[Rfam]
RNA sequence: UUGUCCCCCAUUUGUAAGUCGCUUUGGAUAAAAGCAUCUGCUAAAUGAUUGAUU
Numbered sequence: 001u002u003g004u005c006c007c008c009c010a011u012u013u014g015u016a017a018g019u020c021g022c023u024u025u026g027g028a029u030a031a032a033a034g035c036a037u038c039u040g041c042u043a044a045a046u047g048a049u050u051g052a053u054u
Stems, first nucleotide, its partner, number of pairs: 013043001014041003021035005